[Rfam]
RNA: Bacterial RNase P class A
Organism: Flavobacterium arcticum
RNA sequence: CCCGCAGGUCGCCUUAUCGCUCCGUUUUUACGGGGAGGAAAGUCCGGACACCAUAGGGCAGCAUAGCGGGUAACGCCCGUCACCGUGCUAACACGGGAGGACAAGUGCAGCAGAAAGUAUGUACAGGUAAUGCUGUAGUGAAACCAGGUAAACUCUAUGCGGUGCAAUGUCAAGUAUACCAGCAAUUAAGGGCUGCUCGCCCAAUGCUGGAGGGUAGACAGAUAGAGCAUAACAGCAAUGUUAUGCCUAGAUAAAUGAUAAGGGUUUCUUUUCUUAGAAAUACAGAAUCCGGCUUACAGACCUGCUUUAUUU
Numbered sequence: 001c002c003c004g005c006a007g008g009u010c011g012c013c014u015u016a017u018c019g020c021u022c023c024g025u026u027u028u029u030a031c032g033g034g035g036a037g038g039a040a041a042g043u044c045c046g047g048a049c050a051c052c053a054u055a056g057g058g059c060a061g062c063a064u065a066g067c068g069g070g071u072a073a074c075g076c077c078c079g080u081c082a083c084c085g086u087g088c089u090a091a092c093a094c095g096g097g098a099g100g101a102c103a104a105g106u107g108c109a110g111c112a113g114a115a116a117g118u119a120u121g122u123a124c125a126g127g128u129a130a131u132g133c134u135g136u137a138g139u140g141a142a143a144c145c146a147g148g149u150a151a152a153c154u155c156u157a158u159g160c161g162g163u164g165c166a167a168u169g170u171c172a173a174g175u176a177u178a179c180c181a182g183c184a185a186u187u188a189a190g191g192g193c194u195g196c197u198c199g200c201c202c203a204a205u206g207c208u209g210g211a212g213g214g215u216a217g218a219c220a221g222a223u224a225g226a227g228c229a230u231a232a233c234a235g236c237a238a239u240g241u242u243a244u245g246c247c248u249a250g251a252u253a254a255a256u257g258a259u260a261a262g263g264g265u266u267u268c269u270u271u272u273c274u275u276a277g278a279a280a281u282a283c284a285g286a287a288u289c290c291g292g293c294u295u296a297c298a299g300a301c302c303u304g305c306u307u308u309a310u311u312u
Base pairs, nucleotide, nucleotide: 004305005304006303007302008301009300010299011297012263013262014261015260016259017258018257020035021034022033023032024031025030040295041294042293044292045291046290047289048288049164050163051162052161056198057197058196059195061160062159063158064157065156066080067079068078069077070076081099083096084095085094086093087092100155101154105153106152107149108148122137123136124135125134126133168220169219170218171217179210180209181208182207183206190202191201192200193199227246228245229244230243231242232241233240234239